[Rfam]
Description
Small nucleolar RNA Z122: an 87-nucleotide RNA from Candidozyma auris. On this family, see Chen et al., Nucleic Acids Res 2003: "The high diversity of snoRNAs in plants: identification and comparative study of 120 snoRNA genes from Oryza sativa".

Nucleotides: 087
Stems, first nucleotide, its partner, number of pairs: 001087006
Number, partner (000 for none) and nucleotide at each position: 001087a002086c003085u004084g005083u006082c007000g008000a009000a010000u011000g012000a013000u014000g015000a016000u017000c018000a019000u020000g021000g022000u023000c024000a025000u026000c027000u028000g029000a030000u031000a032000u033000u034000c035000u036000u037000c038000u039000a040000g041000g042000a043000g044000g045000a046000g047000a048000c049000a050000a051000u052000a053000a054000c055000a056000g057000u058000a059000u060000a061000u062000c063000g064000a065000u066000u067000u068000g069000c070000a071000u072000g073000u074000c075000a076000g077000u078000c079000u080000g081000a082006g083005a084004c085003a086002g087001u